A member of the RNA family "t44 RNA" from a BD1-7 clade bacterium, 129 nucleotides long. From the family's description: This family consists of a number of bacterial RNA genes of between 135 and 170 bases in length.

[Rfam]
RNA sequence: UCCAUUUAUGACAAAAACCGCACAUAUAUCGACACAUAAUUUGGGUGCUUUUGUUUAGCGCGUUUAGCGUCGGAAUUUUUCUGAUACUUAGCUGCAAAAGUUGAAUUAUGGGAUGUAUGGAGGCCUAAC
Numbered sequence: 001u002c003c004a005u006u007u008a009u010g011a012c013a014a015a016a017a018c019c020g021c022a023c024a025u026a027u028a029u030c031g032a033c034a035c036a037u038a039a040u041u042u043g044g045g046u047g048c049u050u051u052u053g054u055u056u057a058g059c060g061c062g063u064u065u066a067g068c069g070u071c072g073g074a075a076u077u078u079u080u081c082u083g084a085u086a087c088u089u090a091g092c093u094g095c096a097a098a099a100g101u102u103g104a105a106u107u108a109u110g111g112g113a114u115g116u117a118u119g120g121a122g123g124c125c126u127a128a129c
Stems, first nucleotide, its partner, number of pairs: 023119008035110009047101008